[Rfam]
RNA sequence: UGAUGAAAAUUCUCCGGAAUCUCUGUACUCCAUUGAUGAUCCCUUGAACCCAUAUCUGCUGAUGGCUGUGGUAAUGGUU
Numbered sequence: 001u002g003a004u005g006a007a008a009a010u011u012c013u014c015c016g017g018a019a020u021c022u023c024u025g026u027a028c029u030c031c032a033u034u035g036a037u038g039a040u041c042c043c044u045u046g047a048a049c050c051c052a053u054a055u056c057u058g059c060u061g062a063u064g065g066c067u068g069u070g071g072u073a074a075u076g077g078u079u
Base pairs, nucleotide, nucleotide: 002079003078004077006075
Small nucleolar RNA MBII-202: a 79-nucleotide sequence from Anolis carolinensis. On this family, see Huttenhofer et al., EMBO J 2001: "RNomics: an experimental approach that identifies 201 candidates for novel, small, non-messenger RNAs in mouse". It is one of the family's seed sequences.